[Rfam]
RNA sequence: CAGUUAAAGGGUCCGUAGUCGUAGAUGCAAUUAAAAGGUGGUGUUAAAAGCCAUUGAGUUUGUUGAGAGUAGCGGAACGGAUAGGGAGCAUGGUAUAGGUGGGCAAAGAAUGAAAUCUCAAGACCCCACCUGGACCAACGGAGGCGAAAGCGAUGCUCUUAGACGUAUCUGGGGAUCAAGGACGAAGGCUAGAGUAUCGAAAGUGAUUAGACACCGCUGUAGUUCUAGCAGUAAACUAUGCCGACAAUGCUGGGUGUUGCGAGAGCGAUGCUUGGUGUGGGAGAAAUCUUAGUUUUCGGGCUCUGGGGAUAGUACGCUCGCAAGGGUGAAACUUAAAGCGAAAU
Numbered sequence: 001c002a003g004u005u006a007a008a009g010g011g012u013c014c015g016u017a018g019u020c021g022u023a024g025a026u027g028c029a030a031u032u033a034a035a036a037g038g039u040g041g042u043g044u045u046a047a048a049a050g051c052c053a054u055u056g057a058g059u060u061u062g063u064u065g066a067g068a069g070u071a072g073c074g075g076a077a078c079g080g081a082u083a084g085g086g087a088g089c090a091u092g093g094u095a096u097a098g099g100u101g102g103g104c105a106a107a108g109a110a111u112g113a114a115a116u117c118u119c120a121a122g123a124c125c126c127c128a129c130c131u132g133g134a135c136c137a138a139c140g141g142a143g144g145c146g147a148a149a150g151c152g153a154u155g156c157u158c159u160u161a162g163a164c165g166u167a168u169c170u171g172g173g174g175a176u177c178a179a180g181g182a183c184g185a186a187g188g189c190u191a192g193a194g195u196a197u198c199g200a201a202a203g204u205g206a207u208u209a210g211a212c213a214c215c216g217c218u219g220u221a222g223u224u225c226u227a228g229c230a231g232u233a234a235a236c237u238a239u240g241c242c243g244a245c246a247a248u249g250c251u252g253g254g255u256g257u258u259g260c261g262a263g264a265g266c267g268a269u270g271c272u273u274g275g276u277g278u279g280g281g282a283g284a285a286a287u288c289u290u291a292g293u294u295u296u297c298g299g300g301c302u303c304u305g306g307g308g309a310u311a312g313u314a315c316g317c318u319c320g321c322a323a324g325g326g327u328g329a330a331a332c333u334u335a336a337a338g339c340g341a342a343a344u
Stems, first nucleotide, its partner, number of pairs: 001305003011183004018176003074170003077166003082161001085159007092136002096132008107118003144151002188229006198222001202218004240301003243294003247278014281288002307334002316327004
RNA: Microsporidia small subunit ribosomal RNA, nucleotides 447 to 790
Organism: Ecytonucleospora hepatopenaei